[Rfam]
The family of this 153-nucleotide sequence from Paenibacillus rigui is "FMN riboswitch aptamer (RFN element)". A reference for the family is Vitreschak et al. (2002), "Regulation of riboflavin biosynthesis and transport genes in bacteria by transcriptional and translational attenuation", Nucleic Acids Res. The organism belongs to Paenibacillus, within Bacteria.
RNA sequence: ACGGAUCUUCGGGGCAGGGUGAAAUUCCCGACCGGCGGUGAGGAGUCGUACGUGACUCUUAGCCCGCGACUCGCAGCUUGCCAUAUGGAGGCUUGCGACUGAUUUGGUGAAAUUCCAAAGCCGACGGUACAGUCCGGAUGGGAGAAGGUCAAA
Numbered sequence: 001a002c003g004g005a006u007c008u009u010c011g012g013g014g015c016a017g018g019g020u021g022a023a024a025u026u027c028c029c030g031a032c033c034g035g036c037g038g039u040g041a042g043g044a045g046u047c048g049u050a051c052g053u054g055a056c057u058c059u060u061a062g063c064c065c066g067c068g069a070c071u072c073g074c075a076g077c078u079u080g081c082c083a084u085a086u087g088g089a090g091g092c093u094u095g096c097g098a099c100u101g102a103u104u105u106g107g108u109g110a111a112a113u114u115c116c117a118a119a120g121c122c123g124a125c126g127g128u129a130c131a132g133u134c135c136g137g138a139u140g141g142g143a144g145a146a147g148g149u150c151a152a153a
Stems, first nucleotide, its partner, number of pairs: 004150007017029003031133002033123002035067004062121002071098006103119005125136003